[Rfam]
RNA: Glycine riboswitch aptamer
Organism: Rhodococcus coprophilus
RNA sequence: CGCCGUCGUGCGGGAGAGUUCCGGACCUGAUCCGGGCGCCGAAGGAGCAGCACCUCCCCGUCAAUCUCUCAGGCAUACAGGACCGUGCGAGCUAC
Numbered sequence: 001c002g003c004c005g006u007c008g009u010g011c012g013g014g015a016g017a018g019u020u021c022c023g024g025a026c027c028u029g030a031u032c033c034g035g036g037c038g039c040c041g042a043a044g045g046a047g048c049a050g051c052a053c054c055u056c057c058c059c060g061u062c063a064a065u066c067u068c069u070c071a072g073g074c075a076u077a078c079a080g081g082a083c084c085g086u087g088c089g090a091g092c093u094a095c
Base pairs, nucleotide, nucleotide: 006090007089008088009087010086011085012084013083020036021035022034023033038074039073040072041070042069045068046067047066052061053060